Shown here is a 70-nucleotide sequence from Chanos chanos, a member of the family "mir-338 microRNA precursor family". For this family Rfam cites "The developmental miRNA profiles of zebrafish as determined by small RNA cloning" (Chen et al., Genes Dev, 2005).
[Rfam]
RNA sequence: CUUGGAACAAUAUCCUGAUGCUGUGUGAGUGAUUCGGGAAAAGCUCCAGCAUCAGUGAUUUUGUUGCUAG
Numbered sequence: 001c002u003u004g005g006a007a008c009a010a011u012a013u014c015c016u017g018a019u020g021c022u023g024u025g026u027g028a029g030u031g032a033u034u035c036g037g038g039a040a041a042a043g044c045u046c047c048a049g050c051a052u053c054a055g056u057g058a059u060u061u062u063g064u065u066g067c068u069a070g
Stems, first nucleotide, its partner, number of pairs: 006065005012059003015055009
The organism belongs to Chanos, within Eukaryota.